[Rfam]
RNA sequence: CAAAAAUGUAAAUGUAAGUCGCUUUGGAUAAAAGCGUCUGCUAAAUGACUAAAU
Numbered sequence: 001c002a003a004a005a006a007u008g009u010a011a012a013u014g015u016a017a018g019u020c021g022c023u024u025u026g027g028a029u030a031a032a033a034g035c036g037u038c039u040g041c042u043a044a045a046u047g048a049c050u051a052a053a054u
Base pairs, nucleotide, nucleotide: 013043014041015040016039020036021035022034023033024032025031
Dot-bracket structure: ............((((...((((((.....))))))..))).)...........